RNA sequence: GGCAUUUGAUCAGACAUGGUAGGCAGCGCCCUGCGCCCCUUGUGGGUGCGGGACUCUCGGUGCUUACUGGGCCAGCAUGAGUUUUGGGGUCUUGACAAAGGGGCGGGGAAGUGGCUUUGCGCUCUGCGCUUAGUGUUAUAACCCGCGUUAAUGGAGGCACCCGGGACUGAGGUCUGCGACAUCGUCAAGGAUGCUGGCAUAAUGGUUAAAUGCCGCCCGUCUUGAAACACGG
Numbered sequence: 001g002g003c004a005u006u007u008g009a010u011c012a013g014a015c016a017u018g019g020u021a022g023g024c025a026g027c028g029c030c031c032u033g034c035g036c037c038c039c040u041u042g043u044g045g046g047u048g049c050g051g052g053a054c055u056c057u058c059g060g061u062g063c064u065u066a067c068u069g070g071g072c073c074a075g076c077a078u079g080a081g082u083u084u085u086g087g088g089g090u091c092u093u094g095a096c097a098a099a100g101g102g103g104c105g106g107g108g109a110a111g112u113g114g115c116u117u118u119g120c121g122c123u124c125u126g127c128g129c130u131u132a133g134u135g136u137u138a139u140a141a142c143c144c145g146c147g148u149u150a151a152u153g154g155a156g157g158c159a160c161c162c163g164g165g166a167c168u169g170a171g172g173u174c175u176g177c178g179a180c181a182u183c184g185u186c187a188a189g190g191a192u193g194c195u196g197g198c199a200u201a202a203u204g205g206u207u208a209a210a211u212g213c214c215g216c217c218c219g220u221c222u223u224g225a226a227a228c229a230c231g232g
Stems, first nucleotide, its partner, number of pairs: 001214012017069008073196006217232004
Shown here is a 232-nucleotide part of an RNA from Tetrapisispora phaffii, a member of the family "Eukaryotic large subunit ribosomal RNA".
Rfam links the family to the GO terms ribosome and structural constituent of ribosome.